[Rfam]
RNA sequence: UGCUCUUCUUUUGUAAGUCGCUUUGGAUAAAAGCGUCUGCUAAAUGACUAAAA
Numbered sequence: 001u002g003c004u005c006u007u008c009u010u011u012u013g014u015a016a017g018u019c020g021c022u023u024u025g026g027a028u029a030a031a032a033g034c035g036u037c038u039g040c041u042a043a044a045u046g047a048c049u050a051a052a053a
Base pairs, nucleotide, nucleotide: 012042013040014039015038019035020034021033022032023031024030
UnaL2 LINE 3' element: a 53-nucleotide sequence from Sinocyclocheilus rhinocerous. The family's RNA type in Rfam is cis-regulatory element. A search with the family's covariance model found it, with a score of 64 bits. The eel long interspersed element (LINE) UnaL2 and its partner short interspersed element (SINE) share a conserved 3' tail containing a stem-loop that is critical for their retrotransposition. Presumably, the first step of retrotransposition is the recognition of their 3' tails by UnaL2-encoded reverse transcriptase. The solution structure of a 17-nucleotide RNA derived from the 3' tail of UnaL2 was determined by NMR.